[Rfam]
A member of the RNA family "mir-1923 microRNA precursor family" from Acyrthosiphon pisum, 83 nucleotides long. Lineage of the source: Eukaryota > Mandibulata > Altocrustacea > Macrosiphini > Acyrthosiphon. Pairs were carried over by alignment from the consensus structure, which was predicted with RNAalifold.
RNA sequence: UUGCCAUUUAAAAUGCUGGCUUCGAUAACGUUUUUCAAUAAUAUUUUAAUGACUAAUCGCGUACCGUUGCACAGUCGUGGCGG
Numbered sequence: 001u002u003g004c005c006a007u008u009u010a011a012a013a014u015g016c017u018g019g020c021u022u023c024g025a026u027a028a029c030g031u032u033u034u035u036c037a038a039u040a041a042u043a044u045u046u047u048a049a050u051g052a053c054u055a056a057u058c059g060c061g062u063a064c065c066g067u068u069g070c071a072c073a074g075u076c077g078u079g080g081c082g083g
Base pairs, nucleotide, nucleotide: 002082003081004080005079006078007077012068013067014066015065017063018062023059024058025057026056032055035052036051037050039048040047041046